[Rfam]
Rfam assigns this 372-nucleotide RNA sequence from Gordonia hirsuta to the family "transfer-messenger RNA". Rfam classes the family as a non-coding RNA gene. Clan: tRNA clan. Pairs were carried over by alignment from the consensus structure, which is taken from published work. Rfam's curators write: Bacterial tmRNA, also known as 10Sa RNA or SsrA, is named for its dual tRNA and mRNA-like properties. Its role is to liberate the mRNA from a stalled ribosome. To accomplish this part of the tmRNA is used as a reading frame that ends in a translation stop signal. The source organism's lineage runs through Bacteria, Actinomycetota, Mycobacteriales, Gordoniaceae and Gordonia hirsuta.
RNA sequence: GGGGCUGAUCGGUUUCGACUACGUACAUCGAGGUAGGGGAAGCGUGUCGGUGCAGGCUAGAGACCACCGUAAGCGUCGUAGCAACCAAUUAAGCGCCGAUUCCAAUCAGCGCGACUACGCUCUCGCUGCCUGAUCAGCGAGGCUAGUCUGUCGGCCCGGGUGAUGUUCCCGCACCCGGAUGCCGGCAUCAGCUAGGGAACUCACCGUCGUCGUCGGUCGCGGGCGAAGGCGGGACAACAAACAGCGACUGGGAUCGUCAUCCGGGCUCGUCCGUGAGACCCGGAGAUCCAAGUAGAGACACAGCGGACUGCACACGGAGAAGCCCUACUGAAGUGACGGAGGACCCGGGUUCAAUUCCCGGCAGCUCCACCA
Numbered sequence: 001g002g003g004g005c006u007g008a009u010c011g012g013u014u015u016c017g018a019c020u021a022c023g024u025a026c027a028u029c030g031a032g033g034u035a036g037g038g039g040a041a042g043c044g045u046g047u048c049g050g051u052g053c054a055g056g057c058u059a060g061a062g063a064c065c066a067c068c069g070u071a072a073g074c075g076u077c078g079u080a081g082c083a084a085c086c087a088a089u090u091a092a093g094c095g096c097c098g099a100u101u102c103c104a105a106u107c108a109g110c111g112c113g114a115c116u117a118c119g120c121u122c123u124c125g126c127u128g129c130c131u132g133a134u135c136a137g138c139g140a141g142g143c144u145a146g147u148c149u150g151u152c153g154g155c156c157c158g159g160g161u162g163a164u165g166u167u168c169c170c171g172c173a174c175c176c177g178g179a180u181g182c183c184g185g186c187a188u189c190a191g192c193u194a195g196g197g198a199a200c201u202c203a204c205c206g207u208c209g210u211c212g213u214c215g216g217u218c219g220c221g222g223g224c225g226a227a228g229g230c231g232g233g234a235c236a237a238c239a240a241a242c243a244g245c246g247a248c249u250g251g252g253a254u255c256g257u258c259a260u261c262c263g264g265g266c267u268c269g270u271c272c273g274u275g276a277g278a279c280c281c282g283g284a285g286a287u288c289c290a291a292g293u294a295g296a297g298a299c300a301c302a303g304c305g306g307a308c309u310g311c312a313c314a315c316g317g318a319g320a321a322g323c324c325c326u327a328c329u330g331a332a333g334u335g336a337c338g339g340a341g342g343a344c345c346c347g348g349g350u351u352c353a354a355u356u357c358c359c360g361g362c363a364g365c366u367c368c369a370c371c372a
Stems, first nucleotide, its partner, number of pairs: 001368007019341002022338003028332001032329007043316005048069005056082004121142008149187006156178007165200006204232005210226003215249006251289005257283002266277002269308004345361005